Rfam assigns this 107-nucleotide sequence from Punica granatum to the family "MIR397 microRNA precursor family". NCBI's taxonomy places the organism under Eukaryota, Streptophyta, Embryophyta, Mesangiospermae, Punica. The literature on the family includes a 2009 paper in BMC Genomics by Mica et al., "High throughput approaches reveal splicing of primary microRNA transcripts and tissue specific expression of mature microRNAs in Vitis vinifera". Gene Ontology terms of the family: miRNA-mediated post-transcriptional gene silencing and RISC complex. The match comes from Rfam's covariance-model search (74 bits).
Nucleotides: 107
Base pairs, nucleotide, nucleotide: 006104007103008102009101010100011099013097014096015095016094017093018092019091020090021089022088023087025085026084027083028082030080031079032078
Number, partner (000 for none) and nucleotide at each position: 001000a002000u003000u004000a005000g006104a007103a008102a009101c010100a011099u012000c013097a014096u015095u016094g017093a018092g019091u020090g021089c022088a023087g024000c025085g026084u027083u028082g029000a030080u031079g032078a033000a034000a035000u036000u037000c038000u039000c040000c041000g042000g043000c044000a045000c046000c047000c048000u049000c050000c051000u052000u053000u054000c055000c056000c057000a058000u059000u060000u061000c062000c063000a064000g065000g066000u067000u068000u069000g070000g071000a072000a073000c074000a075000a076000u077000u078032u079031c080030a081000u082028c083027a084026g085025c086000u087023c088022u089021g090020c091019a092018c093017u094016c095015a096014a097013u098000a099011a100010u101009g102008u103007u104006u105000c106000u107000a